[Rfam]
Background:
The record is a 142-nucleotide RNA from Gymnodraco acuticeps, which matches "U4 spliceosomal RNA" in Rfam. Its Rfam clan is "U4 clan".
RNA sequence: AUCUCUGCGCAGUGGCAGUAUCGUAGCCAUGAGGUUUAUCCGAGGGGCGAUUAUUGCUGGUUGAAAACUUUACCCAAUACCCACCCGCCUAGACGACUUGAAAUAUAGUCGGCGACGCAAUUUUUGACAGUCUCUCAGGAGA
Numbered sequence: 001a002u003c004u005c006u007g008c009g010c011a012g013u014g015g016c017a018g019u020a021u022c023g024u025a026g027c028c029a030u031g032a033g034g035u036u037u038a039u040c041c042g043a044g045g046g047g048c049g050a051u052u053a054u055u056g057c058u059g060g061u062u063g064a065a066a067a068c069u070u071u072a073c074c075c076a077a078u079a080c081c082c083a084c085c086c087g088c089c090u091a092g093a094c095g096a097c098u099u100g101a102a103a104u105a106u107a108g109u110c111g112g113c114g115a116c117g118c119a120a121u122u123u124u125u126g127a128c129a130g131u132c133u134c135u136c137a138g139g140a141g142a
Base pairs, nucleotide, nucleotide: 020051021050022049023048024047027045028044033041034040087118088117090115092113094111095110096109097108098107131142132141133140134139

Record summary
It is annotated as a spliceosomal small nuclear RNA. It scores 100 bits against the family's covariance model.